[Rfam]
RNA sequence: AGCACUAUAUAUCUAAACCUGUGAAUGGGAAUUGUCCCCUUUCUUGGUUCCACUCUUGUGUGAAAGAAUUCCUGGCUCUUUCUGUUGCACGGCUGACAUCGUGCCAUUCUGCUGUUGCUGUAUAGAGUUAGGGAACAUAC
Numbered sequence: 001a002g003c004a005c006u007a008u009a010u011a012u013c014u015a016a017a018c019c020u021g022u023g024a025a026u027g028g029g030a031a032u033u034g035u036c037c038c039c040u041u042u043c044u045u046g047g048u049u050c051c052a053c054u055c056u057u058g059u060g061u062g063a064a065a066g067a068a069u070u071c072c073u074g075g076c077u078c079u080u081u082c083u084g085u086u087g088c089a090c091g092g093c094u095g096a097c098a099u100c101g102u103g104c105c106a107u108u109c110u111g112c113u114g115u116u117g118c119u120g121u122a123u124a125g126a127g128u129u130a131g132g133g134a135a136c137a138u139a140c
Base pairs, nucleotide, nucleotide: 002061003060004059005058007056009054016049017048018047019046023043024042025041027039028038029037069135070134071133072132073131074129075128076127077126078125079124083122084121087118088117089116090114091113092112093111095109096108